[Rfam]
Description
The family of this 182-nucleotide RNA from Ureibacillus yapensis is "Lysine riboswitch aptamer". The base pairs follow the family's consensus structure, which is taken from published work.
RNA sequence: UAGGUUGAUAGAGGCGCAAGUUAAAAGAGUAGACUUUCCGGAGGAGAGACAAUUCUGAUGAUGGAUCGUGAAAGGGUAACUUGCCGAAGCAAUAAAUUCAUUGUCUGAAUUUAUUUGCUGGUUUUGCAUUGAAUAAGUGUAAAAUUGUCAGAAUCAAAGGGUUCUGGAGGGCUAUCUCGCAA
Numbered sequence: 001u002a003g004g005u006u007g008a009u010a011g012a013g014g015c016g017c018a019a020g021u022u023a024a025a026a027g028a029g030u031a032g033a034c035u036u037u038c039c040g041g042a043g044g045a046g047a048g049a050c051a052a053u054u055c056u057g058a059u060g061a062u063g064g065a066u067c068g069u070g071a072a073a074g075g076g077u078a079a080c081u082u083g084c085c086g087a088a089g090c091a092a093u094a095a096a097u098u099c100a101u102u103g104u105c106u107g108a109a110u111u112u113a114u115u116u117g118c119u120g121g122u123u124u125u126g127c128a129u130u131g132a133a134u135a136a137g138u139g140u141a142a143a144a145u146u147g148u149c150a151g152a153a154u155c156a157a158a159g160g161g162u163u164c165u166g167g168a169g170g171g172c173u174a175u176c177u178c179g180c181a182a
Stems, first nucleotide, its partner, number of pairs: 007176005016084008033069002037065004088119004092114008120146011148167007
Dot-bracket structure: ......(((((....((((((((.........((..((((.....................))))..)).......))))))))...((((((((((((.......)))))))).))))(((((((((((.....))))))))))).(((((((......)))))))....)))))......